The record is a 561-nucleotide part of an RNA from Desulfoscipio gibsoniae, which matches "Bacterial large subunit ribosomal RNA" in Rfam.

RNA sequence: UAACAAGAGCGUACGGUGGAUGCCUGGGCGCUAAGGGCCGAAGAAGGACGUGGUAAGCUGCGAAAAGCUACGGUGAGCCGCAAGCAGGCAUAGAUCCGUAGAUCUCCGAAUGGGGCAACCCGUUACCUGUAACGAGGUAACAUCUUAUGCUGAAUCCAUAGGCAUAAGAAGGGCACCCGGUGAACUGAAACAUCUAAGUAGCCGGAGGAACAGAAAUCAACCGAGAACCCCCAAGUAGCGGCGAGCGAACCGGGGCCAGCCUAAACCUAUUUUGCGUGCAAAAUAGGGGUUGCGGGACUCUCGAAAGCGGACUAAUAGCCUUAGCCGAACCCGCCAGGAACGGCGGGCCACAGAAGGUAACAGCCCUGUAGGCGAAAAGGCAACGAGUUUAGAGAGCAUCCCAAGUACCGCGGGACACGUGAAACCCCGUGGGAAUCAGGGAGGACCACCUUCCAAGGCUAAAUACCCUUAGCGACCGAUAGCGCACAAGUACCGUGAGGGAAAGGUGAAAAGCACCCCGGGAGGGGAGUGAAAUAGAACCUGAAACCGUACGCUUACAAU
Numbered sequence: 001u002a003a004c005a006a007g008a009g010c011g012u013a014c015g016g017u018g019g020a021u022g023c024c025u026g027g028g029c030g031c032u033a034a035g036g037g038c039c040g041a042a043g044a045a046g047g048a049c050g051u052g053g054u055a056a057g058c059u060g061c062g063a064a065a066a067g068c069u070a071c072g073g074u075g076a077g078c079c080g081c082a083a084g085c086a087g088g089c090a091u092a093g094a095u096c097c098g099u100a101g102a103u104c105u106c107c108g109a110a111u112g113g114g115g116c117a118a119c120c121c122g123u124u125a126c127c128u129g130u131a132a133c134g135a136g137g138u139a140a141c142a143u144c145u146u147a148u149g150c151u152g153a154a155u156c157c158a159u160a161g162g163c164a165u166a167a168g169a170a171g172g173g174c175a176c177c178c179g180g181u182g183a184a185c186u187g188a189a190a191c192a193u194c195u196a197a198g199u200a201g202c203c204g205g206a207g208g209a210a211c212a213g214a215a216a217u218c219a220a221c222c223g224a225g226a227a228c229c230c231c232c233a234a235g236u237a238g239c240g241g242c243g244a245g246c247g248a249a250c251c252g253g254g255g256c257c258a259g260c261c262u263a264a265a266c267c268u269a270u271u272u273u274g275c276g277u278g279c280a281a282a283a284u285a286g287g288g289g290u291u292g293c294g295g296g297a298c299u300c301u302c303g304a305a306a307g308c309g310g311a312c313u314a315a316u317a318g319c320c321u322u323a324g325c326c327g328a329a330c331c332c333g334c335c336a337g338g339a340a341c342g343g344c345g346g347g348c349c350a351c352a353g354a355a356g357g358u359a360a361c362a363g364c365c366c367u368g369u370a371g372g373c374g375a376a377a378a379g380g381c382a383a384c385g386a387g388u389u390u391a392g393a394g395a396g397c398a399u400c401c402c403a404a405g406u407a408c409c410g411c412g413g414g415a416c417a418c419g420u421g422a423a424a425c426c427c428c429g430u431g432g433g434a435a436u437c438a439g440g441g442a443g444g445a446c447c448a449c450c451u452u453c454c455a456a457g458g459c460u461a462a463a464u465a466c467c468c469u470u471a472g473c474g475a476c477c478g479a480u481a482g483c484g485c486a487c488a489a490g491u492a493c494c495g496u497g498a499g500g501g502a503a504a505g506g507u508g509a510a511a512a513g514c515a516c517c518c519c520g521g522g523a524g525g526g527g528a529g530u531g532a533a534a535u536a537g538a539a540c541c542u543g544a545a546a547c548c549g550u551a552c553g554c555u556u557a558c559a560a561u
Stems, first nucleotide, its partner, number of pairs: 007556010022541001023506002027477002029474009038172002046107003049062003068101006077089003112121003122141007143169009176207001177205005187194002217224002228255004238246002258460004266287007294402003298396005310389004316383001318381005324373003330346001332345004349353001355367003408432007439454005493500002516527004
NCBI's taxonomy places the organism under Bacteria, Bacillati, Bacillota, Desulfallaceae, Desulfoscipio gibsoniae. The base pairs follow the family's consensus structure, which is taken from published work.